[Rfam]
RNA sequence: GUCAAGGUAGUUUAAUAGGCUAAAACUUUAAUUUUAUAUAUUAAUAAUGAGAAUUCGAUUUUCUCUCUUGAUU
Dot-bracket structure: (((((((..((((.........)))).(((((.......)))))....(((((.......)))))))))))).